[Rfam]
RNA: Actinobacteria sRNA Ms_IGR-5
Organism: Mycobacteroides franklinii
RNA sequence: ACACACGGAAGGAGGUGGUCCGACACUUUGAUUGGUUAUUGGACAUGUGAGGUGGCUGCUCGCUAGCUGCAGCCAUGCGCUGCGGUGGGCAAAUCCACAGCAGCCACCCGGCCCCCGAACCCUCGAUGAGUCCGAUCGAGCCGAACGGUUCGGGGGCCGCCCCCU
Numbered sequence: 001a002c003a004c005a006c007g008g009a010a011g012g013a014g015g016u017g018g019u020c021c022g023a024c025a026c027u028u029u030g031a032u033u034g035g036u037u038a039u040u041g042g043a044c045a046u047g048u049g050a051g052g053u054g055g056c057u058g059c060u061c062g063c064u065a066g067c068u069g070c071a072g073c074c075a076u077g078c079g080c081u082g083c084g085g086u087g088g089g090c091a092a093a094u095c096c097a098c099a100g101c102a103g104c105c106a107c108c109c110g111g112c113c114c115c116c117g118a119a120c121c122c123u124c125g126a127u128g129a130g131u132c133c134g135a136u137c138g139a140g141c142c143g144a145a146c147g148g149u150u151c152g153g154g155g156g157c158c159g160c161c162c163c164c165u
Stems, first nucleotide, its partner, number of pairs: 014060006062090003066086002069083004109159013122140006